[Rfam]
RNA: TPP riboswitch aptamer (THI element)
Organism: Brachybacterium sp. SGAir0954
RNA sequence: AUCGCGGACACGGGGUGCGCCGCCGGCGCUGAGAUCACACCCGUGGAACCUGAUGCAGCUCGUACUGACGAAGGGAUGUCCGCCAUGCGCUCG
Numbered sequence: 001a002u003c004g005c006g007g008a009c010a011c012g013g014g015g016u017g018c019g020c021c022g023c024c025g026g027c028g029c030u031g032a033g034a035u036c037a038c039a040c041c042c043g044u045g046g047a048a049c050c051u052g053a054u055g056c057a058g059c060u061c062g063u064a065c066u067g068a069c070g071a072a073g074g075g076a077u078g079u080c081c082g083c084c085a086u087g088c089g090c091u092c093g
Base pairs, nucleotide, nucleotide: 006081007080008079009078010077011043012042013041014040016037017029018028019027020026021025049074050073051072056067057066058065